[Rfam]
RNA sequence: AUGCAUCAGCAGGACUCGAACCUGCGAAAUGCCCAAUUAUGAGUUGGGUGCUUUAACCACUCACAUGGAUGC
Numbered sequence: 001a002u003g004c005a006u007c008a009g010c011a012g013g014a015c016u017c018g019a020a021c022c023u024g025c026g027a028a029a030u031g032c033c034c035a036a037u038u039a040u041g042a043g044u045u046g047g048g049u050g051c052u053u054u055a056a057c058c059a060c061u062c063a064c065a066u067g068g069a070u071g072c
Stems, first nucleotide, its partner, number of pairs: 003072005009025005039066003045063006

A member of the RNA family "Plastid-ycf2 5UTR RNA" from Closterium sp. NIES-68, 72 nucleotides long. On this family, see Richter et al., Plant Commun 2023: "Retrograde signaling in plants: A critical review focusing on the GUN pathway and beyond". The family's consensus secondary structure was predicted with LocARNA. The match comes from Rfam's covariance-model search (69 bits). The organism belongs to Closterium peracerosum-strigosum-littorale complex, within Eukaryota. Rfam describes the family as follows. Plastid ycf2 is a non-coding RNA (ncRNA) recognised in plastids. It was found in the prime untranslated region (5UTR) of ycf2 genes, it presents a tRNA-like motif which suggests it can be involved in mRNA maturation, particularly involved in defining the precise 5' end of the transcript.